[Rfam]
RNA: mir-9195 microRNA precursor family
RNA sequence: AGAGGCCCUCUGCGGCCAGAGUGGAAUGCUUGCCUCGUCACCAUGGCGACAAAGCAAGCAUUCCGCCGAGCCACUCACGCUGCCCGC
Numbered sequence: 001a002g003a004g005g006c007c008c009u010c011u012g013c014g015g016c017c018a019g020a021g022u023g024g025a026a027u028g029c030u031u032g033c034c035u036c037g038u039c040a041c042c043a044u045g046g047c048g049a050c051a052a053a054g055c056a057a058g059c060a061u062u063c064c065g066c067c068g069a070g071c072c073a074c075u076c077a078c079g080c081u082g083c084c085c086g087c
Base pairs, nucleotide, nucleotide: 004084005083006082012074014072015071016070021066022065023064024063025062026061027060028059029058030057031056032055033054037050038049039048041046